[Rfam]
RNA sequence: CCGAUCGCGGGGCCGCGUCCAGGGAACCGGGGAACCACCUCUUGGGGUGAAUCGGACCGCCGGGCGUGCCCGUGCGGCUCCGUAGGAGACCUUCCUGCUCCGAACCCGUCAGCUAACCCGGUAGGCGAGAAGGAAGGAAAG
Number, nucleotide and partner (000 for none) at each position: 001c125002c124003g000004a000005u000006c000007g000008c023009g000010g000011g000012g000013c000014c000015g000016c000017g000018u000019c000020c000021a000022g000023g008024g000025a000026a122027c121028c120029g119030g118031g117032g000033a000034a000035c000036c044037a043038c000039c000040u000041c000042u000043u037044g036045g107046g106047g105048u000049g000050a000051a000052u000053c082054g081055g080056a079057c000058c000059g000060c000061c000062g000063g000064g000065c000066g000067u000068g000069c000070c000071c000072g000073u000074g000075c000076g000077g000078c000079u056080c055081c054082g053083u000084a000085g101086g100087a099088g098089a000090c000091c000092u000093u000094c000095c000096u000097g000098c088099u087100c086101c085102g000103a000104a000105c047106c046107c045108g000109u000110c000111a000112g000113c000114u000115a000116a000117c031118c030119c029120g028121g027122u026123a000124g002125g001126c000127g000128a000129g000130a000131a000132g000133g000134a000135a000136g000137g000138a000139a000140a000141g000
The family of this 141-nucleotide RNA sequence from Streptomyces taklimakanensis is "c-di-AMP riboswitch aptamer (ydaO/yuaA leader)". The pairing is the family consensus, mapped onto this sequence. The organism belongs to Streptomyces, within Bacteria.